[Rfam]
This 74-nucleotide sequence from Zingiber officinale belongs to the Rfam family "dfrA-dnaX RNA". The base pairs follow the family's consensus structure, which is taken from published work.
RNA sequence: ACCAAUUGGGUUAAAGUUAUUUAAAUUUCAUCAAAAUAACUUUAAAAUGAUUAUAGAAGCUAUUUUGAUAUCAU
Numbered sequence: 001a002c003c004a005a006u007u008g009g010g011u012u013a014a015a016g017u018u019a020u021u022u023a024a025a026u027u028u029c030a031u032c033a034a035a036a037u038a039a040c041u042u043u044a045a046a047a048u049g050a051u052u053a054u055a056g057a058a059g060c061u062a063u064u065u066u067g068a069u070a071u072c073a074u
Base pairs, nucleotide, nucleotide: 030069031068032067033066034065035064036063037062